This 45-nucleotide sequence from Rhizobium sp. PDO1-076 belongs to the Rfam family "ctRNA". Rfam's curators write: This family represents a group of ctRNAs (or counter-transcribed RNAs) from p42d and related plasmids. ctRNAs are small, highly structured, antisense sequences which are involved in negative regulation. Members of this family are known to bind to the mRNA of repC causing translational repression. This model contains the predicted stem-loop structure followed by a U-rich tract which is proposed to act as a Rho-independent transcriptional terminator. It is annotated as an antisense RNA. Taxonomically the source falls in Rhizobium (Bacteria, Pseudomonadota, Alphaproteobacteria, Rhizobiaceae).
RNA sequence: AGGGGCUUCCGAGACGGCGACGUUUUGGGGGCUCUUUUCUUUUGC
Numbered sequence: 001a002g003g004g005g006c007u008u009c010c011g012a013g014a015c016g017g018c019g020a021c022g023u024u025u026u027g028g029g030g031g032c033u034c035u036u037u038u039c040u041u042u043u044g045c
Base pairs, nucleotide, nucleotide: 003034004033005032006031007030008029009028010027013024014023015022016021